[Rfam]
The record is a 101-nucleotide sequence from Halalkalibacter suaedae, which matches "TPP riboswitch aptamer (THI element)" in Rfam. The family's consensus secondary structure is taken from published work. About the family: Vitamin B(1) in its active form thiamin pyrophosphate (TPP) is an essential coenzyme that is synthesised by coupling of pyrimidine and thiazole moieties in bacteria. The previously detected thiamin-regulatory element, thi box was extended, resulting in a new, highly conserved RNA secondary structure, the THI element, which is widely distributed in eubacteria and also occurs in some archaea. Analysis of operon structures identified a large number of new candidate thiamin-regulated genes, mostly transporters, in various prokaryotic organisms. The THI element is a riboswitch that directly binds to TPP to regulate gene expression through a variety of mechanisms in archaea, bacteria and eukaryotes. through a variety of mechanisms in archaea, bacteria and eukaryotes. Tandem TPP riboswitches have been reported where both TPP riboswitches respond independently to TPP. The structure of TPP riboswitch has been reported for Escherichia coli and Arabidopsis thaliana.
RNA sequence: UAUUUCCACUAGGGGUGCUAUUAAGCUGAGAGAGGUGUUUUCACCUUAACCCUUAACCUGAUCUAGAUAAUACUAGCGUAGGGAAGUGGAGCGGAACGUAU
Numbered sequence: 001u002a003u004u005u006c007c008a009c010u011a012g013g014g015g016u017g018c019u020a021u022u023a024a025g026c027u028g029a030g031a032g033a034g035g036u037g038u039u040u041u042c043a044c045c046u047u048a049a050c051c052c053u054u055a056a057c058c059u060g061a062u063c064u065a066g067a068u069a070a071u072a073c074u075a076g077c078g079u080a081g082g083g084a085a086g087u088g089g090a091g092c093g094g095a096a097c098g099u100a101u
Stems, first nucleotide, its partner, number of pairs: 006089005011053004017026003033046005057082004063076004